[Rfam]
The family of this 124-nucleotide RNA sequence is "TPP riboswitch aptamer (THI element)".
Nucleotides: 124
Stems, first nucleotide, its partner, number of pairs: 006112005011072004016066001017058002021054001079104003085098004
Number, partner (000 for none) and nucleotide at each position: 001000a002000a003000a004000a005000c006112c007111a008110g009109c010108g011072a012071g013070g014069g015000g016066u017058g018057c019000u020000u021054c022000c023000a024000g025000c026000g027000u028000a029000u030000g031000a032000a033000c034000g035000u036000u037000c038000c039000a040000u041000g042000u043000u044000c045000a046000u047000c048000a049000c050000g051000a052000g053000g054021g055000u056000c057018g058017c059000u060000g061000a062000g063000a064000u065000u066016a067000u068000a069014c070013c071012c072011u073000u074000a075000u076000u077000a078000a079104c080103c081102u082000g083000a084000u085098c086097c087096g088095g089000g090000u091000c092000a093000u094000a095088c096087c097086g098085g099000c100000g101000g102081a103080g104079g105000g106000a107000c108010u109009g110008c111007u112006g113000u114000u115000c116000a117000a118000a119000u120000g121000u122000g123000a124000u